[Rfam]
RNA: BsrC
Organism: Exiguobacterium artemiae
RNA sequence: AACACCUGAAACGACGAAAGCCCUACCUCUCUUUCGUUGUUACGGCUCCUUGGCCGCGCCAGCUGAAUCAAGCGUUUUAGCAAGAA
Number, nucleotide and partner (000 for none) at each position: 001a000002a000003c000004a000005c000006c000007u000008g000009a000010a000011a000012c000013g000014a000015c000016g000017a000018a000019a000020g000021c000022c000023c000024u000025a000026c000027c000028u000029c000030u000031c000032u000033u000034u066035c065036g064037u000038u000039g000040u061041u058042a000043c056044g055045g054046c053047u052048c000049c000050u000051u000052g047053g046054c045055c044056g043057c000058g041059c000060c000061a040062g000063c000064u036065g035066a034067a000068u000069c000070a000071a000072g000073c000074g000075u000076u000077u000078u000079a000080g000081c000082a000083a000084g000085a000086a000